[Rfam]
RNA sequence: AUUACCUUUUAAAGAAUUGUCCAGAGAGGCAAAAAAGGGGAAUUAUGGCGGCAGUGCGUUAAAAUUUAACGUGCUUUGCCUUGUCAUACCUCCUACGCCUCGCAAGCUUGCGAGGUUUUUUUACU
Numbered sequence: 001a002u003u004a005c006c007u008u009u010u011a012a013a014g015a016a017u018u019g020u021c022c023a024g025a026g027a028g029g030c031a032a033a034a035a036a037g038g039g040g041a042a043u044u045a046u047g048g049c050g051g052c053a054g055u056g057c058g059u060u061a062a063a064a065u066u067u068a069a070c071g072u073g074c075u076u077u078g079c080c081u082u083g084u085c086a087u088a089c090c091u092c093c094u095a096c097g098c099c100u101c102g103c104a105a106g107c108u109u110g111c112g113a114g115g116u117u118u119u120u121u122u123a124c125u
Stems, first nucleotide, its partner, number of pairs: 003040001005038005017032005047080005053075009095118001097116008
Notes:
A member of the RNA family "PyrR binding site" from Lysinibacillus telephonicus, 125 nucleotides long. By type it is a cis-regulatory element. Lineage of the source: Bacteria > Bacillati > Bacilli > Bacillaceae > Lysinibacillus. Rfam links the family to the GO terms pyrimidine nucleobase transport and pyrimidine nucleobase biosynthetic process. This family represents the PyrR binding site and terminator structure. This RNA structure is found upstream of a variety of genes involved in pyrimidine biosynthesis and transport. The alignment also includes a portion of the antiterminator structure.